tRNA: a 104-nucleotide RNA from Cordyceps javanica.
Pairs were carried over by alignment from the consensus structure, which is taken from published work.
Rfam links the family to the GO term triplet codon-amino acid adaptor activity.
RNA sequence: AUCCCUGUUGCACAGUGGUUAGUGCGUGACUCUUAUAAGCCAAAGAUCAUUUUGGUUUUAUGGAAGACAUGUCAAGGUCCGGGGUUCGAACCCCCGCAGGGAUA
Dot-bracket structure: (((((((..((((........)))).((((........................................)))).....(((((.......)))))))))))).
Numbered sequence: 001a002u003c004c005c006u007g008u009u010g011c012a013c014a015g016u017g018g019u020u021a022g023u024g025c026g027u028g029a030c031u032c033u034u035a036u037a038a039g040c041c042a043a044a045g046a047u048c049a050u051u052u053u054g055g056u057u058u059u060a061u062g063g064a065a066g067a068c069a070u071g072u073c074a075a076g077g078u079c080c081g082g083g084g085u086u087c088g089a090a091c092c093c094c095c096g097c098a099g100g101g102a103u104a
Stems, first nucleotide, its partner, number of pairs: 001103007010025004027074004080096005
Rfam classes the family as a transfer RNA.